This 214-nucleotide RNA from Acetilactobacillus jinshanensis belongs to the Rfam family "T-box leader". The organism belongs to Acetilactobacillus, within Bacteria. Rfam describes the family as follows. Uncharged tRNA acts as the effector for transcription antitermination of genes in the T-box leader family.
[Rfam]
RNA sequence: UGAAAAGUUUUGAAGAAAAAGUAGUAGGCCACUUUGUACAGGAAGAGCGGGUUGACUGAGAACCGUUUCGUUUGGCUAAAUUCGUUUUCCGAACUGAUAUUGGGAAUCUAAAAAGACGAAAAAUAUCCGGUGUCAUGCCGUUAUCUAGUUAAGAGUGUCUGUUAUUAUAUAAUACAGGCAAAAUAGGGUGGCACCGCGAAGCUUCGUCCCUUUC
Numbered sequence: 001u002g003a004a005a006a007g008u009u010u011u012g013a014a015g016a017a018a019a020a021g022u023a024g025u026a027g028g029c030c031a032c033u034u035u036g037u038a039c040a041g042g043a044a045g046a047g048c049g050g051g052u053u054g055a056c057u058g059a060g061a062a063c064c065g066u067u068u069c070g071u072u073u074g075g076c077u078a079a080a081u082u083c084g085u086u087u088u089c090c091g092a093a094c095u096g097a098u099a100u101u102g103g104g105a106a107u108c109u110a111a112a113a114a115g116a117c118g119a120a121a122a123a124u125a126u127c128c129g130g131u132g133u134c135a136u137g138c139c140g141u142u143a144u145c146u147a148g149u150u151a152a153g154a155g156u157g158u159c160u161g162u163u164a165u166u167a168u169a170u171a172a173u174a175c176a177g178g179c180a181a182a183a184u185a186g187g188g189u190g191g192c193a194c195c196g197c198g199a200a201g202c203u204u205c206g207u208c209c210c211u212u213u214c
Base pairs, nucleotide, nucleotide: 007094008093015089016088017087018086027077028076029075030074031073035070036069045068046067047066048065049064050063097126098125099124100123101122128140129139130138156180157179158178159177160176161175162174185211186210187209188208196207197206198205199204